[Rfam]
RNase MRP: a 229-nucleotide sequence from Frankliniella occidentalis. The family's RNA type in Rfam is ribozyme. The family's consensus secondary structure is taken from published work.
RNA sequence: GAGUCGGUUCGAGCAUUUCUCUCGGGGCCACGACGGGGACCUCGUGUCCCUUCGCCCUGGGGAAAGUCCCCGGAUCCCCGGUAGAGAGUACCGCGCCGUGAGAGCGUUUGCCUCGCCCAUCGCCCGCAGUCAGCCAGUGAUAGGCGCGGGCGGGGCGGGUGCGCUGAUCAUAGCACAGUAAUGAAAUGCGUCGCAAGACGAACAGAACGGGGCUCUCUCCGACCCGACU
Numbered sequence: 001g002a003g004u005c006g007g008u009u010c011g012a013g014c015a016u017u018u019c020u021c022u023c024g025g026g027g028c029c030a031c032g033a034c035g036g037g038g039a040c041c042u043c044g045u046g047u048c049c050c051u052u053c054g055c056c057c058u059g060g061g062g063a064a065a066g067u068c069c070c071c072g073g074a075u076c077c078c079c080g081g082u083a084g085a086g087a088g089u090a091c092c093g094c095g096c097c098g099u100g101a102g103a104g105c106g107u108u109u110g111c112c113u114c115g116c117c118c119a120u121c122g123c124c125c126g127c128a129g130u131c132a133g134c135c136a137g138u139g140a141u142a143g144g145c146g147c148g149g150g151c152g153g154g155g156c157g158g159g160u161g162c163g164c165u166g167a168u169c170a171u172a173g174c175a176c177a178g179u180a181a182u183g184a185a186a187u188g189c190g191u192c193g194c195a196a197g198a199c200g201a202a203c204a205g206a207a208c209g210g211g212g213c214u215c216u217c218u219c220c221g222a223c224c225c226g227a228c229u
Stems, first nucleotide, its partner, number of pairs: 002229006009222003014188006022060007036050005065214002068212004080092004093107004097102001111158001115156004124149004135143001190199003